The family of this 118-nucleotide RNA from Acanthosepion pharaonis is "Small nucleolar RNA SNORD10". The family's RNA type in Rfam is C/D-box small nucleolar RNA. A search with the family's covariance model found it, with a score of 46 bits.
RNA sequence: GAGAAAUGAUGAAACCUCAUGCGUGUCAUAUGAUGCUGGUUGUAGAAAGGGUCGGUCAGUUUUUGAUUGCAUUUCUUUUUGCUUCUAGCAUAUGAUCAAGAUAUAUUUUUCUGAUUUC
Dot-bracket structure: ((((.......................................((((((((.....................))))))))..................................))))
Numbered sequence: 001g002a003g004a005a006a007u008g009a010u011g012a013a014a015c016c017u018c019a020u021g022c023g024u025g026u027c028a029u030a031u032g033a034u035g036c037u038g039g040u041u042g043u044a045g046a047a048a049g050g051g052u053c054g055g056u057c058a059g060u061u062u063u064u065g066a067u068u069g070c071a072u073u074u075c076u077u078u079u080u081g082c083u084u085c086u087a088g089c090a091u092a093u094g095a096u097c098a099a100g101a102u103a104u105a106u107u108u109u110u111c112u113g114a115u116u117u118c
Stems, first nucleotide, its partner, number of pairs: 001118004044080008